[Rfam]
RNA: Pseudomonas sRNA CrcZ
Organism: Pseudomonas sp. 8AS
RNA sequence: ACAACAACAAUAACAAACCAGAAACACCACAAUAAAAAUAAGACGAAACGACUCCAGCACAAUAAAAACAACAAGGCGGAGGCGCAGCUAACUGAUCAUUUUGGAGAGGAUUUGCCCUUGGGGUUCGCCCCACAGCCAGGCCGAGAACAAUAAGACUGUCUCAAGACAGUGCCUGAACUGGUUGGAUCACGGAUUGAUCAAGGCAACAUCAGCAUUCAAAGUAAUCCGUUUGCUCCUGGUACCCCAAUUGGGCUACCAAAAACGGGCCAACCAACAAAAACAACAGGCUCGCAAUAAUAACAAAAACAAAGCACGCACCUACUUGGGGGGGAGCUUCGGCUCCCCCAGUAGCUUCCGCAUCCCCAGCCUGCCAUU
Numbered sequence: 001a002c003a004a005c006a007a008c009a010a011u012a013a014c015a016a017a018c019c020a021g022a023a024a025c026a027c028c029a030c031a032a033u034a035a036a037a038a039u040a041a042g043a044c045g046a047a048a049c050g051a052c053u054c055c056a057g058c059a060c061a062a063u064a065a066a067a068a069c070a071a072c073a074a075g076g077c078g079g080a081g082g083c084g085c086a087g088c089u090a091a092c093u094g095a096u097c098a099u100u101u102u103g104g105a106g107a108g109g110a111u112u113u114g115c116c117c118u119u120g121g122g123g124u125u126c127g128c129c130c131c132a133c134a135g136c137c138a139g140g141c142c143g144a145g146a147a148c149a150a151u152a153a154g155a156c157u158g159u160c161u162c163a164a165g166a167c168a169g170u171g172c173c174u175g176a177a178c179u180g181g182u183u184g185g186a187u188c189a190c191g192g193a194u195u196g197a198u199c200a201a202g203g204c205a206a207c208a209u210c211a212g213c214a215u216u217c218a219a220a221g222u223a224a225u226c227c228g229u230u231u232g233c234u235c236c237u238g239g240u241a242c243c244c245c246a247a248u249u250g251g252g253c254u255a256c257c258a259a260a261a262a263c264g265g266g267c268c269a270a271c272c273a274a275c276a277a278a279a280a281c282a283a284c285a286g287g288c289u290c291g292c293a294a295u296a297a298u299a300a301c302a303a304a305a306a307c308a309a310a311g312c313a314c315g316c317a318c319c320u321a322c323u324u325g326g327g328g329g330g331g332a333g334c335u336u337c338g339g340c341u342c343c344c345c346c347a348g349u350a351g352c353u354u355c356c357g358c359a360u361c362c363c364c365a366g367c368c369u370g371c372c373a374u375u
Stems, first nucleotide, its partner, number of pairs: 049084002052081004099221005113214003133184007156169005242252002265290002268287001309354004326349001327346008